Shown here is a 96-nucleotide RNA from Saimiri boliviensis, a member of the family "Small nucleolar RNA SNORD116". A reference for the family is Cavaille et al. (2000), "Identification of brain-specific and imprinted small nucleolar RNA genes exhibiting an unusual genomic organization", Proc Natl Acad Sci U S A. NCBI's taxonomy places the organism under Eukaryota, Gnathostomata, Amniota, Boreoeutheria, Saimiri boliviensis. The family's RNA type in Rfam is C/D-box small nucleolar RNA. The match comes from Rfam's covariance-model search (49 bits). Pairs were carried over by alignment from the consensus structure, which was predicted with PFOLD.
[Rfam]
RNA sequence: GGAUCGAUGAUGACUAUUAGAAAAAUGGAUUUCAUCGGAAUCUGAACAAAAUGAGUGACCAAAUCAUUUUUGUGCCACUUCUGUGAGCUGAGGUCC
Numbered sequence: 001g002g003a004u005c006g007a008u009g010a011u012g013a014c015u016a017u018u019a020g021a022a023a024a025a026u027g028g029a030u031u032u033c034a035u036c037g038g039a040a041u042c043u044g045a046a047c048a049a050a051a052u053g054a055g056u057g058a059c060c061a062a063a064u065c066a067u068u069u070u071u072g073u074g075c076c077a078c079u080u081c082u083g084u085g086a087g088c089u090g091a092g093g094u095c096c
Base pairs, nucleotide, nucleotide: 001096002095003094004093005092029056030055031054032053035048